[Rfam]
RNA sequence: GGGGGGUGUGACCCCACGCUUCCUGGGUUGUGUGACCCCACGCUCCCUGGGGGGUGUGACCCCACACUUCCU
Numbered sequence: 001g002g003g004g005g006g007u008g009u010g011a012c013c014c015c016a017c018g019c020u021u022c023c024u025g026g027g028u029u030g031u032g033u034g035a036c037c038c039c040a041c042g043c044u045c046c047c048u049g050g051g052g053g054g055u056g057u058g059a060c061c062c063c064a065c066a067c068u069u070c071c072u
Base pairs, nucleotide, nucleotide: 001071002070003069004068005067015058016057017056018055020053021052022051023050024049025048026047027046031042032041033040034039
Description: Shown here is a 72-nucleotide RNA sequence from Cercocebus atys, a member of the family "mir-3689 microRNA precursor family". The source organism's lineage runs through Eukaryota, Eumetazoa, Eutheria, Boreoeutheria and Cercocebus. The family has 7 seed sequences and 117 matches in Rfam 15.1. Its family is annotated with RISC complex and miRNA-mediated post-transcriptional gene silencing in the Gene Ontology. The base pairs follow the family's consensus structure, which was predicted with RNAalifold. A search with the family's covariance model found it, with a score of 59 bits.